The family of this 69-nucleotide sequence from Thiobacillus denitrificans is "int-alpA RNA". The family's consensus secondary structure is taken from published work. Rfam 15.1 lists 577 matches to the family in 491 species.

[Rfam]
RNA sequence: GCCGCGCCUAGCCCGACAGGGCGAAUACUGGGAACCCUUGCCCGACUGGCGCGGCAACCAACUCAAGGG
Numbered sequence: 001g002c003c004g005c006g007c008c009u010a011g012c013c014c015g016a017c018a019g020g021g022c023g024a025a026u027a028c029u030g031g032g033a034a035c036c037c038u039u040g041c042c043c044g045a046c047u048g049g050c051g052c053g054g055c056a057a058c059c060a061a062c063u064c065a066a067g068g069g
Base pairs, nucleotide, nucleotide: 001055002054003053004052005051006050007049008048011022012021013020014019029044030043031042032041035069036068037067038066039065040064
The family's RNA type in Rfam is small RNA. Acidobacteria (1 example), Planctomycetes (1 example), Proteobacteria.